[Rfam]
This 211-nucleotide sequence from Streptomyces sp. ISL-66 belongs to the Rfam family "Actinobacteria sRNA Ms_IGR-5".
RNA sequence: ACACUGAAAGGAGGUGAUCCCGGAAAUGUAUGAAAUCCGGACGCGUGAGGUGACUGCGGGCUAAGCGCCCGUCGUCGCACGCACCCAGUGCGGUGCCUGGCGGGAUGCCUGGCGCCAAUCCACAGCAGUCACCCGACCCGCGGGCUCGCCGGUACGUCCGGCCGGCUUCUCCCACUGCAGGGGAGAGACCAGAGCCCGCGGGUCGCCUGCG
Numbered sequence: 001a002c003a004c005u006g007a008a009a010g011g012a013g014g015u016g017a018u019c020c021c022g023g024a025a026a027u028g029u030a031u032g033a034a035a036u037c038c039g040g041a042c043g044c045g046u047g048a049g050g051u052g053a054c055u056g057c058g059g060g061c062u063a064a065g066c067g068c069c070c071g072u073c074g075u076c077g078c079a080c081g082c083a084c085c086c087a088g089u090g091c092g093g094u095g096c097c098u099g100g101c102g103g104g105a106u107g108c109c110u111g112g113c114g115c116c117a118a119u120c121c122a123c124a125g126c127a128g129u130c131a132c133c134c135g136a137c138c139c140g141c142g143g144g145c146u147c148g149c150c151g152g153u154a155c156g157u158c159c160g161g162c163c164g165g166c167u168u169c170u171c172c173c174a175c176u177g178c179a180g181g182g183g184a185g186a187g188a189c190c191a192g193a194g195c196c197c198g199c200g201g202g203u204c205g206c207c208u209g210c211g
Base pairs, nucleotide, nucleotide: 014057015056016055018053059116060115061114062112064110065109067108068107072103073102074101075100076099077098134205135204136203137202138201139200140199141198142197143196144195145194146193148166149165150164151163152162153161
Rfam classes the family as a small RNA. The match comes from Rfam's covariance-model search (82 bits).